[Rfam]
RNA sequence: CGGGAUUAGGUCCCGUUGGAAUGUGGCCCUGCAGGCAGGGUUGAACCGUGAA
Dot-bracket structure: (((((.....))))).(((......(((((......)))))....)))....
RNA: eL15-Euryarchaeota ribosomal protein leader